[Rfam]
The family of this 72-nucleotide sequence from Ixodes scapularis is "mir-3931 microRNA precursor family". Lineage of the source: Eukaryota > Metazoa > Parasitiformes > Ixodida > Ixodes. The family has 2 seed sequences and 17 matches in Rfam 15.1. Gene Ontology terms of the family: RISC complex and miRNA-mediated post-transcriptional gene silencing.
RNA sequence: CUGGAUACGAUUUGUACCGACUCUUGGCUAGGUUUUCGAGAAACUACUUUGAGUCGGUACGAAUCCUUUCCU
Numbered sequence: 001c002u003g004g005a006u007a008c009g010a011u012u013u014g015u016a017c018c019g020a021c022u023c024u025u026g027g028c029u030a031g032g033u034u035u036u037c038g039a040g041a042a043a044c045u046a047c048u049u050u051g052a053g054u055c056g057g058u059a060c061g062a063a064u065c066c067u068u069u070c071c072u
Base pairs, nucleotide, nucleotide: 007067009065010064011063012062013061014060015059016058017057018056019055020054021053022052023051026048027047031045032044033043034042035041036040